Notes: RNase MRP: a 520-nucleotide RNA sequence from Colletotrichum shisoi. The family has 66 seed sequences and 3,510 matches in Rfam 15.1. On this family, see Schmitt et al., FASEB J 1993: "Secondary structure of RNase MRP RNA as predicted by phylogenetic comparison". The match comes from Rfam's covariance-model search (90 bits).
Nucleotides: 520
Stems, first nucleotide, its partner, number of pairs: 002520006008513004014457006022095001023093006038064007099505003103502004121136002124133003389429003395425002398422003404417004459489001461487004
Number, partner (000 for none) and nucleotide at each position: 001000c002520c003519c004518u005517c006516g007515c008513c009512c010511g011510a012000c013000a014457a015456a016455u017454c018453g019452c020000c021000a022095u023093c024092g025091a026090a027089g028088c029000u030000u031000a032000c033000a034000a035000a036000c037000a038064g039063a040062g041061a042060c043059g044058u045000c046000c047000u048000u049000c050000u051000c052000u053000g054000a055000a056000a057000g058044g059043c060042g061041u062040c063039u064038c065000g066000g067000u068000c069000c070000u071000u072000c073000u074000g075000g076000a077000c078000c079000a080000a081000g082000u083000a084000c085000c086000a087000a088028g089027c090026u091025u092024u093023g094000g095022g096000a097000g098000a099505a100504a101503g102000u103502c104501c105500c106499c107000g108000g109000a110000c111000a112000c113000a114000c115000g116000u117000u118000a119000u120000u121136c122135u123000u124133c125132c126131c127000u128000c129000u130000u131126g132125g133124g134000u135122g136121g137000a138000g139000u140000a141000g142000a143000a144000a145000c146000g147000c148000u149000g150000c151000g152000g153000a154000a155000a156000c157000g158000c159000g160000c161000c162000g163000c164000c165000a166000u167000a168000g169000a170000a171000g172000c173000a174000c175000a176000g177000c178000g179000g180000c181000u182000g183000a184000c185000c186000u187000c188000c189000a190000a191000g192000a193000c194000c195000u196000g197000c198000g199000u200000c201000c202000g203000g204000a205000c206000a207000c208000a209000a210000u211000g212000g213000u214000c215000u216000c217000u218000c219000u220000u221000c222000u223000c224000g225000c226000c227000u228000c229000g230000c231000c232000c233000c234000g235000u236000c237000g238000c239000u240000a241000c242000a243000u244000c245000g246000u247000u248000g249000g250000u251000u252000g253000c254000c255000a256000g257000c258000u259000c260000u261000g262000c263000u264000c265000g266000a267000a268000c269000c270000c271000c272000u273000a274000g275000u276000u277000u278000u279000u280000u281000g282000a283000u284000c285000u286000u287000g288000g289000g290000a291000c292000c293000c294000u295000u296000u297000g298000g299000a300000c301000g302000a303000a304000g305000a306000u307000a308000u309000g310000a311000g312000u313000c314000c315000g316000c317000g318000c319000c320000u321000g322000u323000g324000a325000u326000c327000g328000g329000g330000a331000g332000a333000c334000u335000u336000g337000g338000u339000g340000u341000g342000u343000u344000u345000g346000g347000g348000u349000a350000g351000u352000g353000c354000u355000g356000g357000u358000g359000c360000c361000a362000u363000u364000g365000a366000u367000g368000a369000c370000g371000g372000g373000a374000u375000g376000g377000c378000c379000g380000c381000g382000u383000g384000g385000g386000g387000g388000a389429g390428g391427c392000u393000g394000c395425u396424u397000g398422c399421c400420g401000g402000g403000c404417g405416a406415a407414c408000u409000c410000a411000a412000g413000g414407g415406u416405u417404c418000g419000u420400c421399g422398g423000a424396g425395g426000a427391g428390u429389c430000c431000u432000u433000c434000g435000u436000c437000u438000a439000g440000a441000u442000c443000g444000a445000u446000a447000g448000g449000u450000a451000u452019g453018c454017g455016a456015u457014u458000g459489c460000c461487c462486g463485u464484c465000c466000u467000c468000c469000c470000g471000g472000u473000u474000c475000g476000c477000c478000g479000g480000g481000u482000u483000g484464g485463g486462c487461g488000u489459g490000u491000u492000a493000c494000u495000c496000g497000a498000u499106g500105g501104g502103g503101c504100u505099u506000a507000u508000u509000c510011u511010u512009g513008g514000u515007g516006c517005g518004a519003g520002g